[Rfam]
RNA sequence: GGGUCUUUGGCGCAGUUGGUUAGCGCGUAGGUCUCAUAACAUGACUCACUCUGAGUGAGAGACAUCCUAAGGUCGCCAGUUCGAUCCUGGCAAGGCCCA
Numbered sequence: 001g002g003g004u005c006u007u008u009g010g011c012g013c014a015g016u017u018g019g020u021u022a023g024c025g026c027g028u029a030g031g032u033c034u035c036a037u038a039a040c041a042u043g044a045c046u047c048a049c050u051c052u053g054a055g056u057g058a059g060a061g062a063c064a065u066c067c068u069a070a071g072g073u074c075g076c077c078a079g080u081u082c083g084a085u086c087c088u089g090g091c092a093a094g095g096c097c098c099a
Stems, first nucleotide, its partner, number of pairs: 001098007010026004028069004075091005
Dot-bracket structure: (((((((..((((.........)))).((((..................................)))).....(((((.......)))))))))))).